[Rfam]
RNA sequence: CCCAGAUCUGUGACGGCCGUCCCUCAAGCCUGUGCUCAGGUGGGGACGGCCUGAUGUCCUCCGGC
Numbered sequence: 001c002c003c004a005g006a007u008c009u010g011u012g013a014c015g016g017c018c019g020u021c022c023c024u025c026a027a028g029c030c031u032g033u034g035c036u037c038a039g040g041u042g043g044g045g046a047c048g049g050c051c052u053g054a055u056g057u058c059c060u061c062c063g064g065c
Base pairs, nucleotide, nucleotide: 002064003063005061015051016050017049018048019047020046021045022044023043024042030039031038032037
RNA: Selenocysteine insertion sequence 1